The record is a 106-nucleotide RNA sequence from Cohnella herbarum, which matches "Guanidine-I riboswitch aptamer" in Rfam. It scores 84 bits against the family's covariance model. Rfam links the family to the GO term regulation of gene expression.
RNA sequence: UACUAAGUUUACUAGGGUUCCGCCGGAGACUCGAUUACCGGGCUGGUCCGAGAGUAAACCGUUCCCGAGCGCGGGGGCGACACGGAAGGAUAAAAACCUGGGAGAU
Numbered sequence: 001u002a003c004u005a006a007g008u009u010u011a012c013u014a015g016g017g018u019u020c021c022g023c024c025g026g027a028g029a030c031u032c033g034a035u036u037a038c039c040g041g042g043c044u045g046g047u048c049c050g051a052g053a054g055u056a057a058a059c060c061g062u063u064c065c066c067g068a069g070c071g072c073g074g075g076g077g078c079g080a081c082a083c084g085g086a087a088g089g090a091u092a093a094a095a096a097c098c099u100g101g102g103a104g105a106u
Base pairs, nucleotide, nucleotide: 007059008058009057010056011055012054015049016048020046021045022043023041024040025039026038028036060079061078062077063076064075065074066073067072081101083104087099088098089097